RNA sequence: GUUGCAAAUUUGAGAGCAUAGCAGAAGUGCCUAUAGCAUGGCUCUGUCAGAUUGCAAGAAACCUGCGAAUUCUGCU
Numbered sequence: 001g002u003u004g005c006a007a008a009u010u011u012g013a014g015a016g017c018a019u020a021g022c023a024g025a026a027g028u029g030c031c032u033a034u035a036g037c038a039u040g041g042c043u044c045u046g047u048c049a050g051a052u053u054g055c056a057a058g059a060a061a062c063c064u065g066c067g068a069a070u071u072c073u074g075c076u
Base pairs, nucleotide, nucleotide: 012044013043014042017040020076021075022074023073024072025071026070027039028038029037048065049064050063052061053060